[Rfam]
RNA sequence: GGUCUGUGAUGAGUUUCGGCAUGUAUUCUGAGUAUAAACUUGAAGAGUAUCAGUUUAGCUCUAGAAUUACUCUGAGACCUG
Numbered sequence: 001g002g003u004c005u006g007u008g009a010u011g012a013g014u015u016u017c018g019g020c021a022u023g024u025a026u027u028c029u030g031a032g033u034a035u036a037a038a039c040u041u042g043a044a045g046a047g048u049a050u051c052a053g054u055u056u057a058g059c060u061c062u063a064g065a066a067u068u069a070c071u072c073u074g075a076g077a078c079c080u081g
Base pairs, nucleotide, nucleotide: 001079002078003077004076
Rfam assigns this 81-nucleotide RNA sequence from Ceuthmochares aereus to the family "Small nucleolar RNA SNORD45". Rfam links the family to the GO terms nucleolus and RNA processing. The base pairs follow the family's consensus structure, which was predicted with PFOLD. Rfam classes the family as a C/D-box small nucleolar RNA. The match comes from Rfam's covariance-model search (57 bits). On this family, see Galardi et al., Mol Cell Biol 2002: "Purified box C/D snoRNPs are able to reproduce site-specific 2'-O-methylation of target RNA in vitro".